Rfam assigns this 132-nucleotide sequence from Callithrix jacchus to the family "Small nucleolar RNA SNORA51". Gene Ontology terms of the family: RNA processing and nucleolus.
RNA sequence: GAUCUCCUGGUGCUUGCCACCGGCUGUGUGCUUGCACUGACUGUACAGAAAAAGAGACAGGGUAAACAAACCCCACAUAUGCCUGAGACUAGGCCCUGUGCCUGGUCUAUAUUGUGAAUAGGGGGGACAUAG
Numbered sequence: 001g002a003u004c005u006c007c008u009g010g011u012g013c014u015u016g017c018c019a020c021c022g023g024c025u026g027u028g029u030g031c032u033u034g035c036a037c038u039g040a041c042u043g044u045a046c047a048g049a050a051a052a053a054g055a056g057a058c059a060g061g062g063u064a065a066a067c068a069a070a071c072c073c074c075a076c077a078u079a080u081g082c083c084u085g086a087g088a089c090u091a092g093g094c095c096c097u098g099u100g101c102c103u104g105g106u107c108u109a110u111a112u113u114g115u116g117a118a119u120a121g122g123g124g125g126g127a128c129a130u131a132g
Base pairs, nucleotide, nucleotide: 003057004056005055006054008052020043022041026037027036028035029034071124072123073122074121075119086108087107089105090104091103092102093101094100